[Rfam]
Lysine riboswitch aptamer: a 179-nucleotide RNA from Candidatus Enterovibrio altilux. Taxonomically the source falls in Enterovibrio (Bacteria, Pseudomonadati, Pseudomonadota, Gammaproteobacteria).

RNA sequence: UAUGUUCGUAGAGGUGCUCUAGUCAUCAGUAUUGUUAGGGUGAUACCUUCAAGGACAUGUGAAAAGGAAGGAGUGUCGCAGUAGAAAGAAGUGUAUCAAGUUAUUCUACUGGGGUUGUGAUCGAAUAGAUACGACUCUGCAAUAAUAUUGGAGUUUAAUUAUGAAGCGUUACUGUAGUU
Numbered sequence: 001u002a003u004g005u006u007c008g009u010a011g012a013g014g015u016g017c018u019c020u021a022g023u024c025a026u027c028a029g030u031a032u033u034g035u036u037a038g039g040g041u042g043a044u045a046c047c048u049u050c051a052a053g054g055a056c057a058u059g060u061g062a063a064a065a066g067g068a069a070g071g072a073g074u075g076u077c078g079c080a081g082u083a084g085a086a087a088g089a090a091g092u093g094u095a096u097c098a099a100g101u102u103a104u105u106c107u108a109c110u111g112g113g114g115u116u117g118u119g120a121u122c123g124a125a126u127a128g129a130u131a132c133g134a135c136u137c138u139g140c141a142a143u144a145a146u147a148u149u150g151g152a153g154u155u156u157a158a159u160u161a162u163g164a165a166g167c168g169u170u171a172c173u174g175u176a177g178u179u
Stems, first nucleotide, its partner, number of pairs: 006174001008172004016076002019073002023068002033059003080110007088102002111138009121128001142162005